[Rfam]
RNA sequence: GCACGUCCCGGAUCUUUUCCAAUCCGGCAGCUAACUUGCAAGCGGUCGCGGCUGGUGAUUAUGGGCAUAACAUUGGCAAUGCUCUUUUCUCAAGCUCCCGUGCGGAUAGUUUUUACCGCAUAGCGAUUUUUAUCUCCGAGCGCACAAGGGCGCAAUUAUGGCAUUAUUUUAUCGCCUCUCUUUUCCACACGACUCUCGCACUCCCAAAAAUUUGCGUGCUUUGCGUGUGCGGACUAAAAACACGUUUUUAGACCGUUCCAACUUGCGGCAUUGGUUUGCCGUCCCGUGCGGUGUGGUUAUUUGACACCCUCUUUAAUCGUUCCAAAACGAACGGGCGAAUUUUCGUUUGUCCGAGCCACGAAAAUAGGUUUCCCACAAAAAAGGCUCUUUGUUU
Numbered sequence: 001g002c003a004c005g006u007c008c009c010g011g012a013u014c015u016u017u018u019c020c021a022a023u024c025c026g027g028c029a030g031c032u033a034a035c036u037u038g039c040a041a042g043c044g045g046u047c048g049c050g051g052c053u054g055g056u057g058a059u060u061a062u063g064g065g066c067a068u069a070a071c072a073u074u075g076g077c078a079a080u081g082c083u084c085u086u087u088u089c090u091c092a093a094g095c096u097c098c099c100g101u102g103c104g105g106a107u108a109g110u111u112u113u114u115a116c117c118g119c120a121u122a123g124c125g126a127u128u129u130u131u132a133u134c135u136c137c138g139a140g141c142g143c144a145c146a147a148g149g150g151c152g153c154a155a156u157u158a159u160g161g162c163a164u165u166a167u168u169u170u171a172u173c174g175c176c177u178c179u180c181u182u183u184u185c186c187a188c189a190c191g192a193c194u195c196u197c198g199c200a201c202u203c204c205c206a207a208a209a210a211u212u213u214g215c216g217u218g219c220u221u222u223g224c225g226u227g228u229g230c231g232g233a234c235u236a237a238a239a240a241c242a243c244g245u246u247u248u249u250a251g252a253c254c255g256u257u258c259c260a261a262c263u264u265g266c267g268g269c270a271u272u273g274g275u276u277u278g279c280c281g282u283c284c285c286g287u288g289c290g291g292u293g294u295g296g297u298u299a300u301u302u303g304a305c306a307c308c309c310u311c312u313u314u315a316a317u318c319g320u321u322c323c324a325a326a327a328c329g330a331a332c333g334g335g336c337g338a339a340u341u342u343u344c345g346u347u348u349g350u351c352c353g354a355g356c357c358a359c360g361a362a363a364a365u366a367g368g369u370u371u372c373c374c375a376c377a378a379a380a381a382a383g384g385c386u387c388u389u390u391g392u393u394u
Base pairs, nucleotide, nucleotide: 008027009026010025011024012023013022051095052094053092054091055090102119103118104117105116123175124174125173126172140153141152142151143150186229187228188227189226190225191224198219199218200217201216204274205273206272207271230255231254232253234251235250236249237248238247239246240245265282266281267280268279269278270277283335284334285333286332290308291307292306293305294304317330318329319328320327321326353387354386355385356384357383367374368373
A member of the RNA family "Bacteroidales-2 RNA", 394 nucleotides long. The family's RNA type in Rfam is small RNA.